[Rfam]
RNA sequence: GGAAUUCGGAGCGGCGCACUCCUCCUCCCAGCGCCCCUCCGAUACGGUUGGCAACACUCCUCCUCCCAGUUGCCAAUCACCUUCAAUGACGCUCGCUGGACCUCCUCCCCCAGCGGGCGUUAUUC
Numbered sequence: 001g002g003a004a005u006u007c008g009g010a011g012c013g014g015c016g017c018a019c020u021c022c023u024c025c026u027c028c029c030a031g032c033g034c035c036c037c038u039c040c041g042a043u044a045c046g047g048u049u050g051g052c053a054a055c056a057c058u059c060c061u062c063c064u065c066c067c068a069g070u071u072g073c074c075a076a077u078c079a080c081c082u083u084c085a086a087u088g089a090c091g092c093u094c095g096c097u098g099g100a101c102c103u104c105c106u107c108c109c110c111c112a113g114c115g116g117g118c119g120u121u122a123u124u125c
Stems, first nucleotide, its partner, number of pairs: 007041003011037001013035005046078010089120011

A member of the RNA family "Alphaproteobacterial ar14" from Ensifer sp. M14, 125 nucleotides long. Rfam's curators write: Smr14C2 was renamed NfeR1 (Nodule Formation Efficiency RNA) highly expressed in salt stress and during the symbiotic interaction on legume roots. By type it is a small RNA. A search with the family's covariance model found it, with a score of 116 bits.